[Rfam]
RNA: c-di-AMP riboswitch aptamer (ydaO/yuaA leader)
RNA sequence: CCAGGUGAAACGCCGAAGCGGGGGAACCAGUAUCGGGGCUAAUUUUCAACGAGUCAUUCACGAGUCAUUCACAAAAGCGUGACAAAAUAAAUGGCCAGUUGAAAAGGGACAUCUCUCAGUCCUCGCCCGUCAGCUAACUCCGUCGGCAUUGAGAGGAGACUGA
Numbered sequence: 001c002c003a004g005g006u007g008a009a010a011c012g013c014c015g016a017a018g019c020g021g022g023g024g025a026a027c028c029a030g031u032a033u034c035g036g037g038g039c040u041a042a043u044u045u046u047c048a049a050c051g052a053g054u055c056a057u058u059c060a061c062g063a064g065u066c067a068u069u070c071a072c073a074a075a076a077g078c079g080u081g082a083c084a085a086a087a088u089a090a091a092u093g094g095c096c097a098g099u100u101g102a103a104a105a106g107g108g109a110c111a112u113c114u115c116u117c118a119g120u121c122c123u124c125g126c127c128c129g130u131c132a133g134c135u136a137a138c139u140c141c142g143u144c145g146g147c148a149u150u151g152a153g154a155g156g157a158g159a160c161u162g163a
Base pairs, nucleotide, nucleotide: 001015018143019142020141021140022139023138028035036128037127038126044104045103046102047101048100049099050098107122108121109120110119